Rfam assigns this 105-nucleotide RNA sequence from Brassica rapa to the family "Small nucleolar RNA snoR17". The family has 2 seed sequences and 32 matches in Rfam 15.1. NCBI's taxonomy places the organism under Eukaryota, Magnoliopsida, rosids, Brassicales, Brassica. Gene Ontology terms of the family: RNA processing and nucleolus. For this family Rfam cites "Multiple snoRNA gene clusters from Arabidopsis" (Brown et al., RNA, 2001). Rfam classes the family as a C/D-box small nucleolar RNA. A search with the family's covariance model found it, with a score of 74 bits.

[Rfam]
RNA sequence: UAUAGUGAUGAAUAUAAUCACAAUUGUCACUACCUCUGAGGCAAUAUUUUGAUCGUUUUGAUUUUGAUAAUUGUGUUUAUUAUUAAGCCUUGUGAUUGCAUCUAA
Numbered sequence: 001u002a003u004a005g006u007g008a009u010g011a012a013u014a015u016a017a018u019c020a021c022a023a024u025u026g027u028c029a030c031u032a033c034c035u036c037u038g039a040g041g042c043a044a045u046a047u048u049u050u051g052a053u054c055g056u057u058u059u060g061a062u063u064u065u066g067a068u069a070a071u072u073g074u075g076u077u078u079a080u081u082a083u084u085a086a087g088c089c090u091u092g093u094g095a096u097u098g099c100a101u102c103u104a105a
Base pairs, nucleotide, nucleotide: 004031005030006029007028008027009026077095078094079093